Shown here is a 127-nucleotide RNA sequence from Gossypium klotzschianum, a member of the family "MIR7504 microRNA precursor family". NCBI's taxonomy places the organism under Eukaryota, Tracheophyta, Euphyllophyta, rosids, Gossypium.

[Rfam]
RNA sequence: AAUAAGAGCAUGACAAUUUAGAUUUUUUUCUCCAAAUUUUCAGUUUUUUUCUCUUGAAAAAAUUCAAAUCCAACUAAAGAUGCUAAAAAUCAGAAGAAAAAAAAAUCUGAUUUGUCGUACUUCUAUU
Numbered sequence: 001a002a003u004a005a006g007a008g009c010a011u012g013a014c015a016a017u018u019u020a021g022a023u024u025u026u027u028u029u030c031u032c033c034a035a036a037u038u039u040u041c042a043g044u045u046u047u048u049u050u051c052u053c054u055u056g057a058a059a060a061a062a063u064u065c066a067a068a069u070c071c072a073a074c075u076a077a078a079g080a081u082g083c084u085a086a087a088a089a090u091c092a093g094a095a096g097a098a099a100a101a102a103a104a105a106u107c108u109g110a111u112u113u114g115u116c117g118u119a120c121u122u123c124u125a126u127u
Base pairs, nucleotide, nucleotide: 001127002126003125004124006122007121008120010118011117012116013115014114015113016112018110019109020108021107022106023104024103025102026101027100030096031095033093036090037089038088039087040086042084043083046080047079048078049077